[Rfam]
RNA sequence: UGGACUGUAUUCGACUGUAUUCAUGGCGUGAAAUAGGGAAUUACAUUAUUUUUAAAAUGGAAAAUAAAUCAACUAACAUAGUAGACUCCU
Numbered sequence: 001u002g003g004a005c006u007g008u009a010u011u012c013g014a015c016u017g018u019a020u021u022c023a024u025g026g027c028g029u030g031a032a033a034u035a036g037g038g039a040a041u042u043a044c045a046u047u048a049u050u051u052u053u054a055a056a057a058u059g060g061a062a063a064a065u066a067a068a069u070c071a072a073c074u075a076a077c078a079u080a081g082u083a084g085a086c087u088c089c090u
Base pairs, nucleotide, nucleotide: 004082005081006080007079008078010076011075013074016071017070019069020068021067023065024064027059028058029057030052031051032050033049034048035047036046
RNA: MIR6152 microRNA precursor family